[Rfam]
RNA sequence: AUAUUUCCUCGUUAGGUGAGGCUCCUGUAUAAACAUAAGCCACUGCCCAAAAACAUCGAGAGAUGCCAAUGGGUAGAACAGGUCUUGUCGACUUAAGGCAUGACAUAAUGUGGCUGAGCGAAUGCUCUACGUUGUACAGUGCUAAAACUCAACAGGGGGGCUUU
Numbered sequence: 001a002u003a004u005u006u007c008c009u010c011g012u013u014a015g016g017u018g019a020g021g022c023u024c025c026u027g028u029a030u031a032a033a034c035a036u037a038a039g040c041c042a043c044u045g046c047c048c049a050a051a052a053a054c055a056u057c058g059a060g061a062g063a064u065g066c067c068a069a070u071g072g073g074u075a076g077a078a079c080a081g082g083u084c085u086u087g088u089c090g091a092c093u094u095a096a097g098g099c100a101u102g103a104c105a106u107a108a109u110g111u112g113g114c115u116g117a118g119c120g121a122a123u124g125c126u127c128u129a130c131g132u133u134g135u136a137c138a139g140u141g142c143u144a145a146a147a148c149u150c151a152a153c154a155g156g157g158g159g160g161c162u163u164u
Stems, first nucleotide, its partner, number of pairs: 005160006011153002013096001015149003020143003025139008039114005045074005054065004082104003087099003116127003
Dot-bracket structure: ....(((((((([.(((..(((..((((((((......(((((.(((((....((((....))))....))))).......(((..(((......])))..))).....))))).(((......)))....)))))))).)))...)))..)).))))))....
Shown here is a 164-nucleotide RNA sequence from Lederbergia citrea, a member of the family "M-box riboswitch aptamer (ykoK leader)". About the family: M-box riboswitch, also know as ykoK leader is described as a metaloregulatory RNA that sense divalent metals and function as a genetic control element of genes related to divalent metal transport in bacteria. It was first reported upstream of the B.subtilis ykoK gene and genes with related functions in other bacteria. Pairs were carried over by alignment from the consensus structure.